[Rfam]
RNA sequence: CAAAAUUCGUUGGGGUGCCUUGAAAGAGGCUGAGAGACGCAUUCUCACGUCAACCCAUUGAACCUGAUCCGGGUAAUACCUGCGUAGGGAACGGAGUUUGGCGCGUC
Numbered sequence: 001c002a003a004a005a006u007u008c009g010u011u012g013g014g015g016u017g018c019c020u021u022g023a024a025a026g027a028g029g030c031u032g033a034g035a036g037a038c039g040c041a042u043u044c045u046c047a048c049g050u051c052a053a054c055c056c057a058u059u060g061a062a063c064c065u066g067a068u069c070c071g072g073g074u075a076a077u078a079c080c081u082g083c084g085u086a087g088g089g090a091a092c093g094g095a096g097u098u099u100g101g102c103g104c105g106u107c
Stems, first nucleotide, its partner, number of pairs: 006095005011057004017030005037050003063088004069082001071080002
RNA: TPP riboswitch aptamer (THI element)
Organism: Brucella melitensis